[Rfam]
RNA: mir-263 microRNA precursor family
Organism: Sitophilus oryzae
RNA sequence: AUCGACCUGCGAAUGGCACUAGAAGAAUUCACGGGUUAUUUUGAGGUCCCGUGGUCUUAUGGUGCCAUCCCCGGGGAUGA
Numbered sequence: 001a002u003c004g005a006c007c008u009g010c011g012a013a014u015g016g017c018a019c020u021a022g023a024a025g026a027a028u029u030c031a032c033g034g035g036u037u038a039u040u041u042u043g044a045g046g047u048c049c050c051g052u053g054g055u056c057u058u059a060u061g062g063u064g065c066c067a068u069c070c071c072c073g074g075g076g077a078u079g080a
Base pairs, nucleotide, nucleotide: 006075007074008073009072013068014067015066016065017064018063020061021060023057025056026055029054030053031052032051033050034049